[Rfam]
RNA sequence: CUCGAUAAAGGCAAACCUGGCGAAAGCCAGCGACGCAAAGCUACAGGGGCUUACGAUCCCGCCUGCGGGACGCCGGUUGCCAGCCAGCUGCCGAAG
Numbered sequence: 001c002u003c004g005a006u007a008a009a010g011g012c013a014a015a016c017c018u019g020g021c022g023a024a025a026g027c028c029a030g031c032g033a034c035g036c037a038a039a040g041c042u043a044c045a046g047g048g049g050c051u052u053a054c055g056a057u058c059c060c061g062c063c064u065g066c067g068g069g070a071c072g073c074c075g076g077u078u079g080c081c082a083g084c085c086a087g088c089u090g091c092c093g094a095a096g
Base pairs, nucleotide, nucleotide: 001096003093004092011036012035017030018029019028020027021026034083039089040088041087042086046085047084048081049080050079

Rfam assigns this 96-nucleotide sequence from Paenibacillus athensensis to the family "c-di-GMP-I-GGC riboswitch aptamer". It scores 61 bits against the family's covariance model. Taxonomically the source falls in Paenibacillus (Bacteria, Bacillota, Bacilli, Caryophanales).